[Rfam]
RNA: Small nucleolar RNA SNORD126
Organism: Ornithorhynchus anatinus
RNA sequence: CAUCUGCUGGGAUGAACUGCAUGUUCAGUCCGUGUUUCACCUGAUUCCUGAUUACACACAUGCACUGAGCAGAGC
Numbered sequence: 001c002a003u004c005u006g007c008u009g010g011g012a013u014g015a016a017c018u019g020c021a022u023g024u025u026c027a028g029u030c031c032g033u034g035u036u037u038c039a040c041c042u043g044a045u046u047c048c049u050g051a052u053u054a055c056a057c058a059c060a061u062g063c064a065c066u067g068a069g070c071a072g073a074g075c
Base pairs, nucleotide, nucleotide: 003073004072005071006070007069